[Rfam]
RNA sequence: GGUAUAAUGAAAAAAGGCACUCAUAUAUUUUUGCAAUAGGGGCAAGAGUUUCUACGCUGACCGUAAAUCAGCAGCUAUGAGGUAUUUACUAUAGAUU
Numbered sequence: 001g002g003u004a005u006a007a008u009g010a011a012a013a014a015a016g017g018c019a020c021u022c023a024u025a026u027a028u029u030u031u032u033g034c035a036a037u038a039g040g041g042g043c044a045a046g047a048g049u050u051u052c053u054a055c056g057c058u059g060a061c062c063g064u065a066a067a068u069c070a071g072c073a074g075c076u077a078u079g080a081g082g083u084a085u086u087u088a089c090u091a092u093a094g095a096u097u
Base pairs, nucleotide, nucleotide: 020081021080022079023078024077025076029047030046031045032044033043034042056072057071058070059069060068